[Rfam]
RNA: Betaproteobacteria toxic small RNA
RNA sequence: CGUCUCCUCCAACCCCCUAUGGUUUGGAUUCAGCCCGCGCCGCAAGGCUCUGCGGGCUUUUUUUU
Numbered sequence: 001c002g003u004c005u006c007c008u009c010c011a012a013c014c015c016c017c018u019a020u021g022g023u024u025u026g027g028a029u030u031c032a033g034c035c036c037g038c039g040c041c042g043c044a045a046g047g048c049u050c051u052g053c054g055g056g057c058u059u060u061u062u063u064u065u
Base pairs, nucleotide, nucleotide: 008028009027010026011025012024013022014021032058033057034056035055036054037053038052039051